The record is a 96-nucleotide sequence from Candidatus Xianfuyuplasma coldseepsis, which matches "THF (Tetrahydrofolate) riboswitch aptamer" in Rfam.
Rfam 15.1 lists 747 matches to the family in 747 species.
Pairs were carried over by alignment from the consensus structure, which is taken from published work.
Rfam's curators write: Tetrahydrofolate (THF) riboswitch was first reported for Ames et al. as an RNA motif in 5' untranslated (5'-UTR)regions of folate transport and biosynthesis genes in Firmicutes genomes.
RNA sequence: AUCAGAGUAGCUAUAUUGCGUUAAGUGCUUUACCAUGGGAAGUUGGGUAAUGACGAACACAUCAUACUGUGGCGGUAAUAUGGCGCGUCCGCUGAA
Numbered sequence: 001a002u003c004a005g006a007g008u009a010g011c012u013a014u015a016u017u018g019c020g021u022u023a024a025g026u027g028c029u030u031u032a033c034c035a036u037g038g039g040a041a042g043u044u045g046g047g048u049a050a051u052g053a054c055g056a057a058c059a060c061a062u063c064a065u066a067c068u069g070u071g072g073c074g075g076u077a078a079u080a081u082g083g084c085g086c087g088u089c090c091g092c093u094g095a096a
Stems, first nucleotide, its partner, number of pairs: 002095004010084009019074003025054002028052001030050005038090003042086001058071004